[Rfam]
RNA sequence: CCAGGCAGUGCGGGAGAGACCCCUUACGGGGCGCCGAAGGCGCAACUUCCGCCCGGAAACGCUCAGGCAAAAGGACCGCGCUGCCAUA
Numbered sequence: 001c002c003a004g005g006c007a008g009u010g011c012g013g014g015a016g017a018g019a020c021c022c023c024u025u026a027c028g029g030g031g032c033g034c035c036g037a038a039g040g041c042g043c044a045a046c047u048u049c050c051g052c053c054c055g056g057a058a059a060c061g062c063u064c065a066g067g068c069a070a071a072a073g074g075a076c077c078g079c080g081c082u083g084c085c086a087u088a
Base pairs, nucleotide, nucleotide: 006083007082008081009080010079011078012077013076020031021030022029023028033068034067035066036064037063040062041061042060046056047055

Shown here is an 88-nucleotide sequence from Ectothiorhodospira marina, a member of the family "Glycine riboswitch aptamer". Pairs were carried over by alignment from the consensus structure. The match comes from Rfam's covariance-model search (73 bits). The organism belongs to Ectothiorhodospira, within Bacteria.